[Rfam]
RNA sequence: UAAACUCCAAAUUUGUAUGCAGUUGGAACAGCGCCCCUAGCGGCAAACGUAGGCAAACAUUCCAACUCCAUACAAAUCUAAGUCA
Number, nucleotide and partner (000 for none) at each position: 001u000002a000003a000004a000005c000006u000007c000008c000009a079010a000011a077012u076013u075014u074015g073016u072017a071018u000019g069020c000021a067022g066023u065024u064025g063026g062027a061028a060029c000030a000031g000032c000033g000034c000035c053036c052037c000038u000039a000040g048041c000042g000043g000044c000045a000046a000047a000048c040049g000050u000051a000052g036053g035054c000055a000056a000057a000058c000059a000060u028061u027062c026063c025064a024065a023066c022067u021068c000069c019070a000071u017072a016073c015074a014075a013076a012077u011078c000079u009080a000081a000082g000083u000084c000085a000